Description
A member of the RNA family "Selenocysteine transfer RNA" from Sulfurimonas hongkongensis, 94 nucleotides long. For this family Rfam cites "Eukaryotic selenocysteine tRNA has the 9/4 secondary structure" (Mizutani and Goto, FEBS Lett, 2000).
[Rfam]
RNA sequence: GGGGGGCAUGUGAUCCUGGUGGACGCCACAGGCUUCAACCCUGAUGGAGGUUUUGCUGACAAAGCCUCGGGAGGUUCGAUUCCUUCGCCUUCUC
Numbered sequence: 001g002g003g004g005g006g007c008a009u010g011u012g013a014u015c016c017u018g019g020u021g022g023a024c025g026c027c028a029c030a031g032g033c034u035u036c037a038a039c040c041c042u043g044a045u046g047g048a049g050g051u052u053u054u055g056c057u058g059a060c061a062a063a064g065c066c067u068c069g070g071g072a073g074g075u076u077c078g079a080u081u082c083c084u085u086c087g088c089c090u091u092c093u094c
Stems, first nucleotide, its partner, number of pairs: 001093007010026003014023003029043004047068007071085004
Taxonomically the source falls in Sulfurimonas (Bacteria, Pseudomonadati, Campylobacterota, Campylobacterales).